[Rfam]
RNA sequence: CGCUUAUAGAGAAAGGCAGAGGGACUGGACCCGAUGAAGCCUUAGCAACCUGUCACUAGACAAGGUGCUACAUUCUACCCGAAACAUGAUAUAGGGAAAGAUAAGCC
Numbered sequence: 001c002g003c004u005u006a007u008a009g010a011g012a013a014a015g016g017c018a019g020a021g022g023g024a025c026u027g028g029a030c031c032c033g034a035u036g037a038a039g040c041c042u043u044a045g046c047a048a049c050c051u052g053u054c055a056c057u058a059g060a061c062a063a064g065g066u067g068c069u070a071c072a073u074u075c076u077a078c079c080c081g082a083a084a085c086a087u088g089a090u091a092u093a094g095g096g097a098a099a100g101a102u103a104a105g106c107c
Base pairs, nucleotide, nucleotide: 002106003105004104005103006102007101013043014042015041016040017039021032022031023030026077027076028075029074044069045068046067047066049065050064051062052061053060054059073099078096079095080094082092